[Rfam]
Nucleotides: 030
Base pairs, nucleotide, nucleotide: 002029003028004027005026006025011023012022013021014020015019
Number, partner (000 for none) and nucleotide at each position: 001000a002029u003028u004027u005026a006025a007000c008000u009000u010000c011023u012022a013021c014020a015019u016000u017000a018000u019015a020014u021013g022012u023011a024000u025006u026005u027004a028003a029002a030000c

A member of the RNA family "CRISPR RNA direct repeat element" from Clostridium botulinum, 30 nucleotides long. Rfam links the family to the GO term defense response. The organism belongs to Clostridium botulinum, within Bacteria.